[Rfam]
RNA sequence: UGGUAACACGAACCGGUGCUAAAGGGUCCCUGCUCUGACAGCACUGGUCAGUAGCUGUUGGACAGGCCCCUUUAGCACCGGUCCGUGUUACAAA
Numbered sequence: 001u002g003g004u005a006a007c008a009c010g011a012a013c014c015g016g017u018g019c020u021a022a023a024g025g026g027u028c029c030c031u032g033c034u035c036u037g038a039c040a041g042c043a044c045u046g047g048u049c050a051g052u053a054g055c056u057g058u059u060g061g062a063c064a065g066g067c068c069c070c071u072u073u074a075g076c077a078c079c080g081g082u083c084c085g086u087g088u089u090a091c092a093a094a
Base pairs, nucleotide, nucleotide: 003091004090005089006088007087008086009085010084012082013081014080015079016078017077018076019075020074021073022072023071024070025069026068029066030065034062035061036060038058039057045051

The family of this 94-nucleotide RNA from Sorghum bicolor is "MIR5387 microRNA precursor family".
Taxonomically the source falls in Sorghum (Eukaryota, Viridiplantae, Euphyllophyta, Poaceae).
Rfam links the family to the GO terms miRNA-mediated post-transcriptional gene silencing and RISC complex.